The family of this 108-nucleotide RNA from Allobosea sp. PAMC 26642 is "EcpR1".
A search with the family's covariance model found it, with a score of 71 bits.
It is annotated as a small RNA.
Perviously named SmelC291, SmrC10, or Sra33. According to its overproduction phenotype it was renamed Elongated Cell Phenotype RNA1. Induced by stress,EcpR1 negatively regulates cell cycle master regulatory genes dnaA and gcrA at post-transcriptional level by base pairing between its strongly conserved GC-rich loop and the target mRNAs. It's regulation is hfq-independent but requires RNase E to regulate dnaA.
[Rfam]
RNA sequence: ACGCCCCUCGGGUGCUCAGGUCCGCCGCAUCUCCUGGGAAACCGGAGGGCUCGGCCGGUCGGUGACGAAAUUCUGGCCUCCUCAGAACCGUCGCCGGCCGGCCACCUU
Numbered sequence: 001a002c003g004c005c006c007c008u009c010g011g012g013u014g015c016u017c018a019g020g021u022c023c024g025c026c027g028c029a030u031c032u033c034c035u036g037g038g039a040a041a042c043c044g045g046a047g048g049g050c051u052c053g054g055c056c057g058g059u060c061g062g063u064g065a066c067g068a069a070a071u072u073c074u075g076g077c078c079u080c081c082u083c084a085g086a087a088c089c090g091u092c093g094c095c096g097g098c099c100g101g102c103c104a105c106c107u108u
Stems, first nucleotide, its partner, number of pairs: 003050004008045003015038006053103011